[Rfam]
Bacterial RNase P class A: a 348-nucleotide RNA from Pseudoscardovia suis. Taxonomically the source falls in Pseudoscardovia (Bacteria, Bacillati, Actinomycetes, Bifidobacteriaceae). The base pairs follow the family's consensus structure, which is taken from published work. The family is grouped with related families in Rfam's "RNaseP clan". Rfam classes the family as a ribozyme.
Nucleotides: 348
Base pairs, nucleotide, nucleotide: 001344002343003342004341005340006339007338008337009336010335012300013299014298015297016296017295018294020031021030022029023028036331037330038329040328041327042326043325044324045205046204047203048202052237053236054235055234057201058200059199060198061197062076063075064074065073066072077091078089079088080087081086092196093195097194098193099190100189114135115134116131117130119128120127121126143161144160146158147157148156162185163183164182165181166180167179168177169176170175209257210256211255212254218248219247220246221245222244223243229241230240231239232238264283265282266281267280268279269278270277271276
Number, partner (000 for none) and nucleotide at each position: 001344a002343g003342a004341g005340a006339c007338c008337c009336c010335g011000c012300g013299a014298u015297g016296g017295c018294c019000g020031c021030g022029g023028c024000g025000a026000a027000a028023g029022c030021u031020g032000a033000g034000g035000a036331a037330c038329u039000u040328c041327c042326g043325g044324g045205c046204u047203c048202c049000g050000c051000a052237g053236a054235g055234c056000a057201c058200g059199a060198u061197g062076g063075c064074g065073g066072a067000u068000a069000a070000c071000g072066u073065c074064c075063g076062c077091c078089c079088a080087g081086g082000g083000u084000g085000a086081c087080c088079u089078g090000a091077g092196a093195g094000a095000u096000a097194g098193c099190g100189c101000a102000g103000c104000a105000g106000a107000g108000a109000a110000c111000a112000g113000a114135c115134c116131g117130c118000c119128c120127g121126c122000u123000u124000c125000g126121g127120c128119g129000a130117g131116c132000a133000a134115g135114g136000g137000u138000g139000a140000a141000a142000c143161g144160g145000c146158g147157g148156u149000g150000c151000a152000a153000g154000a155000g156148a157147c158146c159000a160144c161143c162185g163183g164182a165181c166180c167179c168177c169176c170175g171000g172000u173000a174000a175170c176169g177168g178000c179167g180166g181165g182164u183163c184000g185162c186000a187000u188000g189100g190099c191000a192000a193098g194097c195093c196092u197061c198060a199059u200058c201057g202048g203047g204046a205045g206000c207000a208000a209257g210256g211255u212254c213000a214000a215000g216000c217000a218248g219247a220246a221245g222244g223243c224000g225000u226000u227000a228000c229241g230240u231239g232238c233000u234055g235054c236053u237052c238232g239231c240230a241229c242000a243223g244222c245221c246220u247219u248218c249000g250000g251000g252000u253000a254212g255211g256210c257209c258000g259000c260000u261000a262000g263000a264283g265282c266281c267280u268279g269278g270277c271276g272000g273000u274000g275000a276271c277270g278269u279268c280267a281266g282265g283264u284000c285000g286000a287000g288000a289000u290000g291000g292000a293000u294018g295017g296016c297015c298014a299013u300012c301000c302000g303000u304000c305000u306000g307000c308000c309000c310000a311000g312000c313000a314000g315000a316000c317000g318000a319000c320000a321000g322000a323000a324044c325043c326042c327041g328040g329038g330037g331036u332000a333000u334000g335010c336009g337008g338007g339006g340005u341004c342003u343002c344001u345000u346000c347000c348000a